[Rfam]
RNA: mir-2807 microRNA precursor family
RNA sequence: UUAACGAAUAUUUGUAUGGAAUUGGAACGUUUGCCUAAGUUUGCCGCUAGGGACGCUGUUCUCAUUGCAUAAUUUGAGUUA
Numbered sequence: 001u002u003a004a005c006g007a008a009u010a011u012u013u014g015u016a017u018g019g020a021a022u023u024g025g026a027a028c029g030u031u032u033g034c035c036u037a038a039g040u041u042u043g044c045c046g047c048u049a050g051g052g053a054c055g056c057u058g059u060u061c062u063c064a065u066u067g068c069a070u071a072a073u074u075u076g077a078g079u080u081a
Stems, first nucleotide, its partner, number of pairs: 008075001010073003016070001018068001020066003024062006034052003039047002